[Rfam]
RNA sequence: GUUGCUUCAUAUGGUGAACUCUCUCUUGUAAAAAUGGGGGAUGUUCAAGUUUCCGAAGCAUAGAUUAAUAAUUUUUUGCCAGUAUUUAAACAGCGCCGUGUGUUCUUUCUUGUUGCACUGUGCUACCUGUCUCCUGGUACAUUU
Numbered sequence: 001g002u003u004g005c006u007u008c009a010u011a012u013g014g015u016g017a018a019c020u021c022u023c024u025c026u027u028g029u030a031a032a033a034a035u036g037g038g039g040g041a042u043g044u045u046c047a048a049g050u051u052u053c054c055g056a057a058g059c060a061u062a063g064a065u066u067a068a069u070a071a072u073u074u075u076u077u078g079c080c081a082g083u084a085u086u087u088a089a090a091c092a093g094c095g096c097c098g099u100g101u102g103u104u105c106u107u108u109c110u111u112g113u114u115g116c117a118c119u120g121u122g123c124u125a126c127c128u129g130u131c132u133c134c135u136g137g138u139a140c141a142u143u144u
Stems, first nucleotide, its partner, number of pairs: 003060006015047005020041005078138005084132001092124003096120001098118003
A member of the RNA family "small nucleolar RNA snoR137" from Castanea mollissima, 144 nucleotides long. For this family Rfam cites "Mining small RNA sequencing data: a new approach to identify small nucleolar RNAs in Arabidopsis" (Chen and Wu, Nucleic Acids Res, 2009). Lineage of the source: Eukaryota > Streptophyta > Euphyllophyta > Gunneridae > Castanea.